[Rfam]
RNA sequence: UGGUUAAUGAGUAUAUGGGGAUGAAUCUCUUACAUUCAACGGCAAGAAUGUGUGGAAAAGGAAAUGGGGGAUAAAAUCCCCCAUUUUUCUGAUAACU
Numbered sequence: 001u002g003g004u005u006a007a008u009g010a011g012u013a014u015a016u017g018g019g020g021a022u023g024a025a026u027c028u029c030u031u032a033c034a035u036u037c038a039a040c041g042g043c044a045a046g047a048a049u050g051u052g053u054g055g056a057a058a059a060g061g062a063a064a065u066g067g068g069g070g071a072u073a074a075a076a077u078c079c080c081c082c083a084u085u086u087u088u089c090u091g092a093u094a095a096c097u
Stems, first nucleotide, its partner, number of pairs: 008038001010036003016032005062086011